[Rfam]
RNA sequence: AUAUAAGGUAGAGGUUGCGUGAUUUAUUAGUAGCUAUUAGGAGGACCCGGAGUCCUAAGAAUAAGAGUGAAAGGAAAUUUCGCCGAAGUGUAGAUAUGCCGGAGUAUCUAUGCUGGGAGUAUGGUCAAUAACCAUGCGACUGUCAUCAUAAGAUGGAGGGCUACUUAAGGA
Numbered sequence: 001a002u003a004u005a006a007g008g009u010a011g012a013g014g015u016u017g018c019g020u021g022a023u024u025u026a027u028u029a030g031u032a033g034c035u036a037u038u039a040g041g042a043g044g045a046c047c048c049g050g051a052g053u054c055c056u057a058a059g060a061a062u063a064a065g066a067g068u069g070a071a072a073g074g075a076a077a078u079u080u081c082g083c084c085g086a087a088g089u090g091u092a093g094a095u096a097u098g099c100c101g102g103a104g105u106a107u108c109u110a111u112g113c114u115g116g117g118a119g120u121a122u123g124g125u126c127a128a129u130a131a132c133c134a135u136g137c138g139a140c141u142g143u144c145a146u147c148a149u150a151a152g153a154u155g156g157a158g159g160g161c162u163a164c165u166u167a168a169g170g171a
Stems, first nucleotide, its partner, number of pairs: 006166006017083003021079005033068003037064003087114011115141002119137007143156005